[Rfam]
RNA sequence: UUCCACAGCUACUGGUCUGGAACUGUUCAGAAUUGUAGCAGUUGCAGUAUUCCCCCUGUGGAAAAUAAAUUGUUACACAGCAUUAGUCUCCUUCUCAGAUGUACUGAAAAGGACUUCCUAUGUAACAAACACCG
Numbered sequence: 001u002u003c004c005a006c007a008g009c010u011a012c013u014g015g016u017c018u019g020g021a022a023c024u025g026u027u028c029a030g031a032a033u034u035g036u037a038g039c040a041g042u043u044g045c046a047g048u049a050u051u052c053c054c055c056c057u058g059u060g061g062a063a064a065a066u067a068a069a070u071u072g073u074u075a076c077a078c079a080g081c082a083u084u085a086g087u088c089u090c091c092u093u094c095u096c097a098g099a100u101g102u103a104c105u106g107a108a109a110a111g112g113a114c115u116u117c118c119u120a121u122g123u124a125a126c127a128a129a130c131a132c133c134g
Stems, first nucleotide, its partner, number of pairs: 003061004017047003021043005075123003079119001089113005095107002

The family of this 134-nucleotide sequence from Helopsaltes ochotensis is "Small nucleolar RNA SNORA41". Taxonomically the source falls in Helopsaltes (Eukaryota, Craniata, Dipnotetrapodomorpha, Sauria). The family has 31 seed sequences and 676 matches in Rfam 15.1. From the family's description: ACA41 is a member of the H/ACA class of snoRNA that guide the sites of modification of uridines to pseudouridines. The match comes from Rfam's covariance-model search (99 bits). The literature on the family includes a 2001 paper in EMBO J by Huttenhofer et al., "RNomics: an experimental approach that identifies 201 candidates for novel, small, non-messenger RNAs in mouse". The base pairs follow the family's consensus structure, which was predicted with PFOLD.